mir-146 microRNA precursor family: a 90-nucleotide sequence from Anolis carolinensis. NCBI's taxonomy places the organism under Eukaryota, Opisthokonta, Metazoa, Euteleostomi, Anolis. The family's consensus secondary structure was predicted with WAR.
[Rfam]
RNA sequence: AUGGUUGCCUAGCUCUGAGAACUGAAUUCCAUAGGCUUUAGAAUAAUUGAAACGCCCCGUGGAUUCAGUUCUACAGCUAGGCAGCAACUA
Numbered sequence: 001a002u003g004g005u006u007g008c009c010u011a012g013c014u015c016u017g018a019g020a021a022c023u024g025a026a027u028u029c030c031a032u033a034g035g036c037u038u039u040a041g042a043a044u045a046a047u048u049g050a051a052a053c054g055c056c057c058c059g060u061g062g063a064u065u066c067a068g069u070u071c072u073a074c075a076g077c078u079a080g081g082c083a084g085c086a087a088c089u090a
Stems, first nucleotide, its partner, number of pairs: 008081002011078003018072008034056003